[Rfam]
RNA sequence: GGGCAGGAUAGGUGAAGUUAGCUAAUCGGCGGAGCCGAUUACCUAACUUCACUUCCCCUUAUUCGCGCCGGGGGCGCUCAACGGGGAAUCCUGCUCUGCGAGGCU
Dot-bracket structure: (((((((((..((((((.(((..((((((.....))))))..))).))))))..((((......(((((...))))).....)))).))))))))).........
The family of this 105-nucleotide RNA sequence from Methylophaga frappieri is "traJ-II RNA".
Taxonomically the source falls in Methylophaga (Bacteria, Gammaproteobacteria, Thiotrichales, Piscirickettsiaceae).